Annotation:
The family of this 49-nucleotide sequence from Pandoraea pnomenusa is "Guanidine-II riboswitch aptamer (mini-ykkC)". A search with the family's covariance model found it, with a score of 47 bits. From the family's description: Simpler in structure and has fewer highly conserved nucleotide positions than the ykkC-yxkD leader. The base pairs follow the family's consensus structure, which is taken from published work. A reference for the family is Sherlock et al. (2017), "Biochemical Validation of a Second Guanidine Riboswitch Class in Bacteria", Biochemistry.
[Rfam]
RNA sequence: UUGUCGGGACGACCCGACAAGCGGCGCCUCUUUUCCGGGGACGACCCCG
Dot-bracket structure: ((((((((....))))))))...............(((((....)))))